RNA sequence: CGGCAGGACACCUCUCCCUAACGAGAGGCAUCGACCUGGGAGGGUCGCACAU
Number, nucleotide and partner (000 for none) at each position: 001c000002g000003g000004c000005a000006g000007g000008a000009c000010a000011c028012c027013u026014c025015u024016c023017c000018c000019u000020a000021a000022c000023g016024a015025g014026a013027g012028g011029c000030a000031u000032c047033g046034a045035c044036c043037u042038g000039g000040g000041a000042g037043g036044g035045u034046c033047g032048c000049a000050c000051a000052u000

serC leader: a 52-nucleotide sequence from Devosia pacifica. The pairing is the family consensus, mapped onto this sequence. This family is a putative regulatory RNA structure that is found upstream of the serC-serA operon in some alpha-proteobacteria. The final stem of the structure overlaps the ribosome binding site of the serC reading frame. Rfam classes the family as a cis-regulatory leader.